The family of this 149-nucleotide RNA sequence from Neomoorella thermoacetica is "Manganese Mn2+ riboswitch aptamer (yybP-ykoY)". For this family Rfam cites "New RNA motifs suggest an expanded scope for riboswitches in bacterial genetic control" (Barrick et al., Proc Natl Acad Sci U S A, 2004). From the family's description: This RNA was originally discovered in E. coli during a large scale screen and was named SraF. The family was later found to exist upstream of related families of protein genes in many bacteria, including the the yybP and ykoK genes in B. subtilis. The specific functions of these proteins are unknown, but this structured RNA element may be involved in their genetic regulation as a riboswitch.
RNA sequence: UUUAGUUGCAGAGGGGAGUAGCUAUUUACCGGUAGAGUCAACAUACUGGUCGCUGACCUGGCUCUACCAGCCUGUUAAGUAUGGCUUAGCGAGACCUUUGCACCCUGGUAGGGGUGUAAAGGUCUCUUUUUUUGGCCGCCAGCCGGCUC
Numbered sequence: 001u002u003u004a005g006u007u008g009c010a011g012a013g014g015g016g017a018g019u020a021g022c023u024a025u026u027u028a029c030c031g032g033u034a035g036a037g038u039c040a041a042c043a044u045a046c047u048g049g050u051c052g053c054u055g056a057c058c059u060g061g062c063u064c065u066a067c068c069a070g071c072c073u074g075u076u077a078a079g080u081a082u083g084g085c086u087u088a089g090c091g092a093g094a095c096c097u098u099u100g101c102a103c104c105c106u107g108g109u110a111g112g113g114g115u116g117u118a119a120a121g122g123u124c125u126c127u128u129u130u131u132u133u134g135g136c137c138g139c140c141a142g143c144c145g146g147c148u149c
Stems, first nucleotide, its partner, number of pairs: 031068010048058004069148004074143001
NCBI's taxonomy places the organism under Bacteria, Bacillati, Bacillota, Neomoorellales, Neomoorella. Its family is annotated with manganese ion binding in the Gene Ontology.